[Rfam]
The record is a 226-nucleotide RNA from Heliophilum fasciatum, which matches "Group II catalytic intron D1-D4-6" in Rfam. The base pairs follow the family's consensus structure. Rfam 15.1 lists 1,617 matches to the family in 661 species. The source organism's lineage runs through Bacteria, Bacillati, Bacillota, Clostridia and Heliophilum.
RNA sequence: GAAAUCCUGCCUGAAAUGGUUGAAGCCCAACCAUCAGUAGCGAGUCUUGGACUGAACAAAGCAAUUUGUGCGGUUUAGCGUAGACAGUUAGGAUGUAGGCCUGAAUGUGAUUGAGCCUCGAAAUGAGUAAAACGGAUAGGCUGACGAUGUCGAAGUAUCGGAAAGCAACACCGUACUUUUAUCAAUAGUGGCGAGAUGAGUGCGGCUAUCCCGGGGAUGAAGAGCC
Numbered sequence: 001g002a003a004a005u006c007c008u009g010c011c012u013g014a015a016a017u018g019g020u021u022g023a024a025g026c027c028c029a030a031c032c033a034u035c036a037g038u039a040g041c042g043a044g045u046c047u048u049g050g051a052c053u054g055a056a057c058a059a060a061g062c063a064a065u066u067u068g069u070g071c072g073g074u075u076u077a078g079c080g081u082a083g084a085c086a087g088u089u090a091g092g093a094u095g096u097a098g099g100c101c102u103g104a105a106u107g108u109g110a111u112u113g114a115g116c117c118u119c120g121a122a123a124u125g126a127g128u129a130a131a132a133c134g135g136a137u138a139g140g141c142u143g144a145c146g147a148u149g150u151c152g153a154a155g156u157a158u159c160g161g162a163a164a165g166c167a168a169c170a171c172c173g174u175a176c177u178u179u180u181a182u183c184a185a186u187a188g189u190g191g192c193g194a195g196a197u198g199a200g201u202g203c204g205g206c207u208a209u210c211c212c213g214g215g216g217a218u219g220a221a222g223a224g225c226c
Stems, first nucleotide, its partner, number of pairs: 011037004018032002021029002025192002040088002044085004048080002050075005056069005112220001113218001116216005134211006140166003145160004171205006179199005